[Rfam]
RNA sequence: GUGCCUGAAAUUAAUGAGUAAGGAAAACCAAUCCGCCUUGCUAAUCGCUUGGUAGUAUUUGGCUUCUAGGCAAAGGGGCGGCCCUCAGAAGCCGCUCCCUUGAGGCCUAAAUUUUUGCACGGGCACAGGUCGCCCCCUGCUUUGCCGGCACGGCCCCUCCCAUUUGGCGGCAGGAACCGGCACCUACUUUUGUGUCGGGGAGCGCUGCUGGAUGG
Numbered sequence: 001g002u003g004c005c006u007g008a009a010a011u012u013a014a015u016g017a018g019u020a021a022g023g024a025a026a027a028c029c030a031a032u033c034c035g036c037c038u039u040g041c042u043a044a045u046c047g048c049u050u051g052g053u054a055g056u057a058u059u060u061g062g063c064u065u066c067u068a069g070g071c072a073a074a075g076g077g078g079c080g081g082c083c084c085u086c087a088g089a090a091g092c093c094g095c096u097c098c099c100u101u102g103a104g105g106c107c108u109a110a111a112u113u114u115u116u117g118c119a120c121g122g123g124c125a126c127a128g129g130u131c132g133c134c135c136c137c138u139g140c141u142u143u144g145c146c147g148g149c150a151c152g153g154c155c156c157c158u159c160c161c162a163u164u165u166g167g168c169g170g171c172a173g174g175a176a177c178c179g180g181c182a183c184c185u186a187c188u189u190u191u192g193u194g195u196c197g198g199g200g201a202g203c204g205c206u207g208c209u210g211g212a213u214g215g
Base pairs, nucleotide, nucleotide: 004023005022006021008019033055035053036052037051040048062106063105064104065103066102160215161214162213163212164211168210169209170208171207172206173205177199178198179196180195181194182193183192
Shown here is a 215-nucleotide RNA from Drosophila persimilis, a member of the family "U12 minor spliceosomal RNA". Its family is annotated with U12 snRNP, mRNA branch site recognition and pre-mRNA branch point binding in the Gene Ontology. NCBI's taxonomy places the organism under Eukaryota, Pancrustacea, Acalyptratae, Drosophila, Sophophora. By type it is a spliceosomal small nuclear RNA. It is one of the family's seed sequences.